[Rfam]
RNA sequence: AAAAAAGCAGGGACCUGUUUUACCUUUGUGAGCAUGUCCUUCGUUAACUUCAGGGACAGCGUCCUCAUUGUUAUUGGGUGAACCUCUGUCUUGUUCGUGACUCAAGGUUCAGUAAAUAAUGGAACAUUU
Numbered sequence: 001a002a003a004a005a006a007g008c009a010g011g012g013a014c015c016u017g018u019u020u021u022a023c024c025u026u027u028g029u030g031a032g033c034a035u036g037u038c039c040u041u042c043g044u045u046a047a048c049u050u051c052a053g054g055g056a057c058a059g060c061g062u063c064c065u066c067a068u069u070g071u072u073a074u075u076g077g078g079u080g081a082a083c084c085u086c087u088g089u090c091u092u093g094u095u096c097g098u099g100a101c102u103c104a105a106g107g108u109u110c111a112g113u114a115a116a117u118a119a120u121g122g123a124a125c126a127u128u129u
Stems, first nucleotide, its partner, number of pairs: 005050003011039002014036001016034004065122008079111007